This 165-nucleotide sequence from Steinernema carpocapsae belongs to the Rfam family "U1 spliceosomal RNA". The family's RNA type in Rfam is spliceosomal small nuclear RNA. From the family's description: U1 is a small nuclear RNA (snRNA) component of the spliceosome (involved in pre-mRNA splicing). Pairs were carried over by alignment from the consensus structure, which is taken from published work. The organism belongs to Steinernema, within Eukaryota. A reference for the family is Zwieb (1997), "The uRNA database", Nucleic Acids Res.
RNA sequence: AAACUUACCUGGCUGGGAUCUCGCUGCGAUCAGCAAGGCAGAGAAUCCAUGGCGAGGCUGGGACAUUGCACUUUAGCUCCCGGCUGACCCGUGCGGCAGCUCCGAGUUGGAGUUGGCCGACAGCUAAAUUUUUGAGUCAGGGGACAGCGUCCGCGCUUCCCCGUA
Number, nucleotide and partner (000 for none) at each position: 001a000002a000003a000004c000005u000006u000007a000008c000009c000010u000011g000012g124013c123014u122015g121016g048017g047018a046019u045020c000021u043022c000023g000024c041025u040026g039027c038028g000029a000030u000031c000032a000033g000034c000035a000036a000037g000038g027039c026040a025041g024042a000043g021044a000045a019046u018047c017048c016049a092050u091051g090052g089053c000054g088055a000056g085057g084058c083059u000060g081061g080062g079063a000064c076065a000066u000067u000068g000069c000070a000071c000072u000073u000074u000075a000076g064077c000078u000079c062080c061081c060082g000083g058084c057085u056086g000087a000088c054089c052090c051091g050092u049093g000094c119095g118096g117097c115098a114099g113100c000101u111102c110103c000104g000105a000106g000107u000108u000109g000110g102111a101112g000113u099114u098115g097116g000117c096118c095119g094120a000121c015122a014123g013124c012125u000126a000127a000128a000129u000130u000131u000132u000133u000134g000135a000136g000137u000138c000139a164140g000141g162142g161143g160144a000145c000146a157147g156148c155149g154150u000151c000152c000153g000154c149155g148156c147157u146158u000159c000160c143161c142162c141163g000164u139165a000